[Rfam]
RNA sequence: CACAAAUUUGAGGACAUAGCAGAAGUGCUCAUGUUACAGGCUGUCAGAUUUCAGCAAAUCUACAAAUUCUGCU
Numbered sequence: 001c002a003c004a005a006a007u008u009u010g011a012g013g014a015c016a017u018a019g020c021a022g023a024a025g026u027g028c029u030c031a032u033g034u035u036a037c038a039g040g041c042u043g044u045c046a047g048a049u050u051u052c053a054g055c056a057a058a059u060c061u062a063c064a065a066a067u068u069c070u071g072c073u
Base pairs, nucleotide, nucleotide: 010041018073019072020071021070022069023068024067025037026036027035046061047060048059049058050057051056
Notes:
The family of this 73-nucleotide RNA sequence from Alligator mississippiensis is "Mammalian CPEB3 ribozyme". It scores 39 bits against the family's covariance model. The mammalian CPEB3 ribozyme is a self cleaving RNA located in the second intron of the CPEB3 gene which belongs to a family of genes regulating messenger RNA polyadenylation.